RNA sequence: CGGAUCGGGCACGUCCCGGCAAACCCGAUCCGACCAAGGGCCCCCGCGCAAGCUGGGGCCCUUUUCUUUU
Numbered sequence: 001c002g003g004a005u006c007g008g009g010c011a012c013g014u015c016c017c018g019g020c021a022a023a024c025c026c027g028a029u030c031c032g033a034c035c036a037a038g039g040g041c042c043c044c045c046g047c048g049c050a051a052g053c054u055g056g057g058g059c060c061c062u063u064u065u066c067u068u069u070u
Stems, first nucleotide, its partner, number of pairs: 001032009037062008046053002